[Rfam]
RNA sequence: GGCUUAAAAUAGCAAACCUUUCGAAAGAAAGGGACGCAAAGCUUCCGGUCUAAGGUGAAAACUAAGAUAGCGGGGUUGCUGAA
Numbered sequence: 001g002g003c004u005u006a007a008a009a010u011a012g013c014a015a016a017c018c019u020u021u022c023g024a025a026a027g028a029a030a031g032g033g034a035c036g037c038a039a040a041g042c043u044u045c046c047g048g049u050c051u052a053a054g055g056u057g058a059a060a061a062c063u064a065a066g067a068u069a070g071c072g073g074g075g076u077u078g079c080u081g082a083a
Stems, first nucleotide, its partner, number of pairs: 012037002017032006040077004045073003048068003055062002
The record is an 83-nucleotide sequence from Pseudoalteromonas phenolica, which matches "c-di-GMP-I riboswitch aptamer" in Rfam. The organism belongs to Pseudoalteromonas, within Bacteria. The match comes from Rfam's covariance-model search (79 bits).